[Rfam]
RNA: MIR528 microRNA precursor family
Organism: Panicum miliaceum
RNA sequence: GUGGAAGGGGCAUGCAGAGGAGCUGGAGGUUUGGUUGGAAGCCGACCUGUGCUACCCUCGCUCGCUCUCCUGUGCCUGCCUCUUCCAUU
Numbered sequence: 001g002u003g004g005a006a007g008g009g010g011c012a013u014g015c016a017g018a019g020g021a022g023c024u025g026g027a028g029g030u031u032u033g034g035u036u037g038g039a040a041g042c043c044g045a046c047c048u049g050u051g052c053u054a055c056c057c058u059c060g061c062u063c064g065c066u067c068u069c070c071u072g073u074g075c076c077u078g079c080c081u082c083u084u085c086c087a088u089u
Base pairs, nucleotide, nucleotide: 001088002087003086004085005084006083007082008081009080010079011078012077014075015074016073018071019070020069021068022067025065